[Rfam]
RNA sequence: GGUGUGCGAUAGACUUACCUCCACGUGGUGCACCCUGGGCAACGUAUACUCAUAUGGCUAAAAUGUCAAC
Numbered sequence: 001g002g003u004g005u006g007c008g009a010u011a012g013a014c015u016u017a018c019c020u021c022c023a024c025g026u027g028g029u030g031c032a033c034c035c036u037g038g039g040c041a042a043c044g045u046a047u048a049c050u051c052a053u054a055u056g057g058c059u060a061a062a063a064u065g066u067c068a069a070c
Base pairs, nucleotide, nucleotide: 001036002035004033005032006031007030017029018028019027043056044055045054046053047052
Notes
HDV ribozyme from F. prausnitzii: a 70-nucleotide sequence from Rodentolepis nana. Taxonomically the source falls in Rodentolepis (Eukaryota, Protostomia, Platyhelminthes, Neodermata). The literature on the family includes a 2009 paper in Science by Webb et al., "Widespread occurrence of self-cleaving ribozymes".